c-di-GMP-I riboswitch aptamer: an 87-nucleotide sequence from Paenibacillus sp. PvR098. The source organism's lineage runs through Bacteria, Bacillati, Bacilli, Paenibacillaceae and Paenibacillus. The base pairs follow the family's consensus structure, which is taken from published work.

RNA sequence: AGUCGAUAAAGGCACACCCAUUGAAAAGUGGGGUCGCAAAGCUACAGGGGCUUCAGUGUGAUUACACUAUGCCAGCCAGUUACCGAA
Numbered sequence: 001a002g003u004c005g006a007u008a009a010a011g012g013c014a015c016a017c018c019c020a021u022u023g024a025a026a027a028g029u030g031g032g033g034u035c036g037c038a039a040a041g042c043u044a045c046a047g048g049g050g051c052u053u054c055a056g057u058g059u060g061a062u063u064a065c066a067c068u069a070u071g072c073c074a075g076c077c078a079g080u081u082a083c084c085g086a087a
Stems, first nucleotide, its partner, number of pairs: 012037002017032006040081004047077002049073003056067004